[Rfam]
RNA sequence: AGUCUGCGAUGAUGCGGGAGAUUGCGGCGCGAGCCGGUAACUUCCGCGGAGUAUGUCCGAGCUAGAAUCGGGCGGCUG
Dot-bracket structure: .............(((.(((....((((....)))).....)))))).......(((...(((.......))))))..
Numbered sequence: 001a002g003u004c005u006g007c008g009a010u011g012a013u014g015c016g017g018g019a020g021a022u023u024g025c026g027g028c029g030c031g032a033g034c035c036g037g038u039a040a041c042u043u044c045c046g047c048g049g050a051g052u053a054u055g056u057c058c059g060a061g062c063u064a065g066a067a068u069c070g071g072g073c074g075g076c077u078g
Stems, first nucleotide, its partner, number of pairs: 014047003018044003025036004055076003061073003
Notes: This 78-nucleotide RNA sequence from Flavonifractor plautii belongs to the Rfam family "S10-Clostridia ribosomal protein leader". On this family, see Eckert and Weinberg, BMC Microbiol 2020: "Discovery of 20 novel ribosomal leader candidates in bacteria and archaea". NCBI's taxonomy places the organism under Bacteria, Bacillati, Clostridia, Oscillospiraceae, Flavonifractor plautii. The family's RNA type in Rfam is cis-regulatory leader.